The record is an 87-nucleotide sequence from Alkalibacterium kapii, which matches "BsrC" in Rfam. Rfam 15.1 lists 572 matches to the family in 553 species. The organism belongs to Alkalibacterium, within Bacteria.
[Rfam]
RNA sequence: UCUCAUUUAUACGACGUGAUCCCUACCUCUACCGCGUCCUUACAACUCUAUAGUUGCGCCAGUGUGAAUAAACUUCUUUAAAACGUG
Numbered sequence: 001u002c003u004c005a006u007u008u009a010u011a012c013g014a015c016g017u018g019a020u021c022c023c024u025a026c027c028u029c030u031a032c033c034g035c036g037u038c039c040u041u042a043c044a045a046c047u048c049u050a051u052a053g054u055u056g057c058g059c060c061a062g063u064g065u066g067a068a069u070a071a072a073c074u075u076c077u078u079u080a081a082a083a084c085g086u087g
Base pairs, nucleotide, nucleotide: 035066036065039062040061041058043056044055045054046053047052